Annotation:
Shown here is a 104-nucleotide RNA sequence from Paraburkholderia caballeronis, a member of the family "Burkholderia sRNA 1". The literature on the family includes a 2017 paper in Sci Rep by Sass et al., "Identification of small RNAs abundant in Burkholderia cenocepacia biofilms reveal putative regulators with a potential role in carbon and iron metabolism". Its family is annotated with bacterial biofilm matrix in the Gene Ontology. Lineage of the source: Bacteria > Pseudomonadati > Burkholderiales > Burkholderiaceae > Paraburkholderia. By type it is a small RNA. Rfam's curators write: Identified by RNA-seq, RACE and Northern blot.
[Rfam]
RNA sequence: AGUUCUGAUGCACCCGAAUUUGCAGGUGGAGAACGAGGAGACAACGAGGCACAAAGUGCCCGGCCAGAAAGCGCUGUUGGAUGGGAAUCCAACAGCGCUUUUUA
Number, nucleotide and partner (000 for none) at each position: 001a000002g034003u033004u032005c031006u000007g000008a000009u030010g000011c028012a027013c026014c025015c022016g021017a000018a000019u000020u000021u016022g015023c000024a000025g014026g013027u012028g011029g000030a009031g005032a004033a003034c002035g000036a000037g000038g000039a000040g065041a000042c000043a000044a000045c062046g061047a000048g060049g059050c058051a057052c056053a000054a000055a000056g052057u051058g050059c049060c048061c046062g045063g000064c000065c040066a000067g000068a101069a100070a099071g098072c097073g096074c095075u094076g093077u092078u091079g090080g089081a088082u000083g000084g000085g000086a000087a000088u081089c080090c079091a078092a077093c076094a075095g074096c073097g072098c071099u070100u069101u068102u000103u000104a000